[Rfam]
RNA sequence: ACUAAGGGUAGAGGUGCAUUGUCUAUAAGUAACUAACUCGAGGGUGAUUCCAUUGACGGUUAGAGAAAGGAGCCAAUGCCGAAGUAAGAGAAGGGUAUCAAACCCUCUUGCUGGGGUUGUGUCGAAUAGGUACAACACUGCCAUAGUAAAAUUUUAAUAUUAACUAUGGAGCGCUACUGUGGGG
Numbered sequence: 001a002c003u004a005a006g007g008g009u010a011g012a013g014g015u016g017c018a019u020u021g022u023c024u025a026u027a028a029g030u031a032a033c034u035a036a037c038u039c040g041a042g043g044g045u046g047a048u049u050c051c052a053u054u055g056a057c058g059g060u061u062a063g064a065g066a067a068a069g070g071a072g073c074c075a076a077u078g079c080c081g082a083a084g085u086a087a088g089a090g091a092a093g094g095g096u097a098u099c100a101a102a103c104c105c106u107c108u109u110g111c112u113g114g115g116g117u118u119g120u121g122u123c124g125a126a127u128a129g130g131u132a133c134a135a136c137a138c139u140g141c142c143a144u145a146g147u148a149a150a151a152u153u154u155u156a157a158u159a160u161u162a163a164c165u166a167u168g169g170a171g172c173g174c175u176a177c178u179g180u181g182g183g184g
Base pairs, nucleotide, nucleotide: 007178008177009176010175011174016079017078018077019076020075021074023072024071033063034062035061036060037059038058083112084111085110086109087108088107089106090105113139114138116136117135118134119133120132121131122130123129141169142168143167144166145165146164147163
About this RNA
This 184-nucleotide RNA from Photobacterium damselae belongs to the Rfam family "Lysine riboswitch aptamer". The family's consensus secondary structure is taken from published work. Taxonomically the source falls in Photobacterium damselae subsp. damselae (Bacteria, Gammaproteobacteria, Photobacterium, Photobacterium damselae). It scores 128 bits against the family's covariance model. Riboswitches are metabolite binding domains within certain messenger RNAs that serve as precision sensors for their corresponding targets. Allosteric rearrangement of mRNA structure is mediated by ligand binding, and this results in modulation of gene expression. This family includes riboswitches that sense lysine in a number of genes involved in lysine metabolism, including lysC.